[Rfam]
RNA sequence: CUCCGUUCUCCGGGGAGUCGCAUGCGAGCGGCUGAGAGAGGGGUGUUUUCCCCCUGACCCGUCGAACCUGAUCCGGGUCAUGCCGGCGAAGGGAUGGGAAUUGAGCGCGGCG
Numbered sequence: 001c002u003c004c005g006u007u008c009u010c011c012g013g014g015g016a017g018u019c020g021c022a023u024g025c026g027a028g029c030g031g032c033u034g035a036g037a038g039a040g041g042g043g044u045g046u047u048u049u050c051c052c053c054c055u056g057a058c059c060c061g062u063c064g065a066a067c068c069u070g071a072u073c074c075g076g077g078u079c080a081u082g083c084c085g086g087c088g089a090a091g092g093g094a095u096g097g098g099a100a101u102u103g104a105g106c107g108c109g110g111c112g
Stems, first nucleotide, its partner, number of pairs: 006100005011061004016055001017032005040053004067092003073086004
Record summary:
This 112-nucleotide RNA from Gluconacetobacter takamatsuzukensis belongs to the Rfam family "TPP riboswitch aptamer (THI element)". Taxonomically the source falls in Gluconacetobacter (Bacteria, Pseudomonadota, Alphaproteobacteria, Acetobacterales).